RNA sequence: UCAGCCCAGGCAUUUGGGUGCGGCCAUCCAAGGUAAGACCUCCCAUAGGGGGGCGCCGCACCCACCUCCCGAAAAGGGGGUGUGCCUGGGAGGAGGA
Numbered sequence: 001u002c003a004g005c006c007c008a009g010g011c012a013u014u015u016g017g018g019u020g021c022g023g024c025c026a027u028c029c030a031a032g033g034u035a036a037g038a039c040c041u042c043c044c045a046u047a048g049g050g051g052g053g054c055g056c057c058g059c060a061c062c063c064a065c066c067u068c069c070c071g072a073a074a075a076g077g078g079g080g081u082g083u084g085c086c087u088g089g090g091a092g093g094a095g096g097a
Base pairs, nucleotide, nucleotide: 005090006089007088008087009086010085011084012083013082016063017062018061019060020059021058022057023056024055037054039053040052041051042050043049064081066080067079068078069077
The record is a 97-nucleotide sequence, which matches "DUF1874 RNA" in Rfam. The family's RNA type in Rfam is cis-regulatory element. Rfam's curators put it in the seed alignment.